This 74-nucleotide sequence belongs to the Rfam family "tRNA". From the family's description: Transfer RNA (tRNA) molecules are approximately 80 nucleotides in length. Their secondary structure includes four short double-helical elements and three loops (D, anti-codon, and T loops). Gene Ontology term of the family: triplet codon-amino acid adaptor activity. The family's RNA type in Rfam is transfer RNA.

Nucleotides: 074
Stems, first nucleotide, its partner, number of pairs: 001073007010026004028044005050066005
Number, partner (000 for none) and nucleotide at each position: 001073g002072u003071u004070u005069a006068g007067a008000u009000a010026g011025c012024u013023c014000a015000g016000g017000u018000g019000g020000u021000u022000a023013g024012a025011g026010c027000a028044a029043a030042g031041g032040a033000c034000u035000g036000a037000a038000a039000a040032u041031c042030c043029u044028u045000g046000u047000g048000u049000c050066a051065g052064u053063g054062g055000u056000u057000c058000g059000a060000a061000u062054c063053c064052a065051c066050u067007u068006c069005u070004a071003a072002a073001c074000a